[Rfam]
RNA sequence: AAAGCAGGCUGCAAUUGCAGCACCUUCUGCUGUGAGAGUGCUGCCAUUUUCCUGCUGAGAGCAACUCUGUUAAUACUGUCUGUGCUUCACCCACACCAUGGUGAAAGCAUUUGUUCUUAAUGUGGACAAGU
Numbered sequence: 001a002a003a004g005c006a007g008g009c010u011g012c013a014a015u016u017g018c019a020g021c022a023c024c025u026u027c028u029g030c031u032g033u034g035a036g037a038g039u040g041c042u043g044c045c046a047u048u049u050u051c052c053u054g055c056u057g058a059g060a061g062c063a064a065c066u067c068u069g070u071u072a073a074u075a076c077u078g079u080c081u082g083u084g085c086u087u088c089a090c091c092c093a094c095a096c097c098a099u100g101g102u103g104a105a106a107g108c109a110u111u112u113g114u115u116c117u118u119a120a121u122g123u124g125g126a127c128a129a130g131u
Stems, first nucleotide, its partner, number of pairs: 003056006018043006025036002067125002069121005075115001081109003086105006

Notes:
A member of the RNA family "Small nucleolar RNA SNORA69" from Bombycilla garrulus, 131 nucleotides long. The family has 16 seed sequences and 808 matches in Rfam 15.1. Its family is annotated with nucleolus and RNA processing in the Gene Ontology. Rfam describes the family as follows. U69 is a member of the H/ACA class of small nucleolar RNAs (snoRNAs) which act as guides in the the modification of uridines to pseudouridines. The family's RNA type in Rfam is H/ACA-box small nucleolar RNA. A search with the family's covariance model found it, with a score of 64 bits. Pairs were carried over by alignment from the consensus structure, which was predicted with PFOLD.